[Rfam]
raiA RNA: a 201-nucleotide RNA sequence from Alkalibacter rhizosphaerae. Taxonomically the source falls in Alkalibacter (Bacteria, Bacillota, Clostridia, Eubacteriaceae). The family's RNA type in Rfam is riboswitch.
RNA sequence: CACCUUCAGGUCUGUGGUUGAAAAUCGAUGCCAGUCGCAGGCGAAACGAUCCACGUAAGGCAUGCAAAAUGCAUGCUGAUCAUGGUGCGGCCUAGAUGUAAGACCGUCCAACAACAGUUGAGAGGAGCAAGUAGUGAGGCGAUCCCGAGCGAAACUUCCAGACGGCGAGUGUGGGGGCAAAGACCAGGUCAGCUGAAGGAC
Number, nucleotide and partner (000 for none) at each position: 001c000002a000003c199004c198005u197006u196007c195008a194009g193010g000011u000012c192013u191014g190015u186016g185017g184018u183019u182020g000021a000022a000023a000024a000025u000026c000027g000028a172029u171030g170031c041032c000033a000034g091035u090036c089037g088038c087039a086040g000041g031042c000043g000044a000045a000046a000047c000048g000049a000050u085051c084052c000053a000054c000055g080056u000057a000058a077059g076060g000061c075062a074063u073064g072065c071066a000067a000068a000069a000070u000071g065072c064073a063074u062075g061076c059077u058078g000079a000080u055081c000082a000083u179084g051085g050086u039087g038088c037089g036090g035091c034092c000093u000094a000095g000096a000097u000098g000099u000100a000101a000102g000103a000104c165105c164106g163107u162108c161109c120110a119111a118112c117113a000114a000115c000116a000117g112118u111119u110120g109121a000122g000123a000124g158125g157126a156127g155128c000129a000130a000131g000132u000133a000134g150135u149136g000137a000138g000139g000140c000141g000142a000143u000144c000145c000146c000147g000148a000149g135150c134151g000152a000153a000154a000155c127156u126157u125158c124159c000160a000161g108162a107163c106164g105165g104166c000167g000168a000169g000170u030171g029172u028173g000174g000175g000176g000177g000178c000179a083180a000181a000182g019183a018184c017185c016186a015187g000188g000189u000190c014191a013192g012193c009194u008195g007196a006197a005198g004199g003200a000201c000